This 98-nucleotide RNA sequence from Actinia tenebrosa belongs to the Rfam family "Small nucleolar SNORD12/SNORD106". Rfam classes the family as a C/D-box small nucleolar RNA. The match comes from Rfam's covariance-model search (53 bits). Rfam 15.1 lists 2,264 matches to the family in 650 species. For this family Rfam cites "RNomics: an experimental approach that identifies 201 candidates for novel, small, non-messenger RNAs in mouse" (Huttenhofer et al., EMBO J, 2001).
[Rfam]
RNA sequence: AGUGUGUGGGAUGAUGAUCAUAUCUUUUUUCCCCAGCUUAUCGACCAUGCUGAUACUAUGCUGAAUUAUUUCAAGCCAAUUUUGUCUGACCACACUUU
Number, nucleotide and partner (000 for none) at each position: 001a098002g097003u000004g095005u094006g093007u092008g091009g090010g000011a000012u000013g000014a000015u000016g000017a000018u000019c000020a000021u000022a000023u000024c000025u000026u000027u000028u000029u000030u000031c000032c000033c000034c000035a000036g000037c000038u000039u000040a000041u000042c000043g000044a000045c000046c000047a000048u000049g000050c000051u000052g000053a000054u000055a000056c000057u000058a000059u000060g000061c000062u000063g000064a000065a000066u000067u000068a000069u000070u000071u000072c000073a000074a000075g000076c000077c000078a000079a000080u000081u000082u000083u000084g000085u000086c000087u000088g000089a000090c009091c008092a007093c006094a005095c004096u000097u002098u001